[Rfam]
Description: This 56-nucleotide RNA sequence from Azospirillum sp. B510 belongs to the Rfam family "terC RNA". Rfam 15.1 lists 1,112 matches to the family in 772 species. The source organism's lineage runs through Bacteria, Pseudomonadati, Pseudomonadota, Azospirillaceae and Azospirillum.

Nucleotides: 056
Stems, first nucleotide, its partner, number of pairs: 006050002009047004022039006
Number, partner (000 for none) and nucleotide at each position: 001000g002000g003000a004000c005000c006050a007049g008000g009047c010046c011045g012044g013000g014000c015000c016000c017000c018000u019000c020000u021000g022039g023038c024037a025036a026035c027034c028000c029000u030000c031000a032000c033000c034027g035026g036025u037024u038023g039022c040000g041000a042000u043000g044012u045011c046010g047009g048000a049007c050006u051000g052000g053000g054000a055000a056000c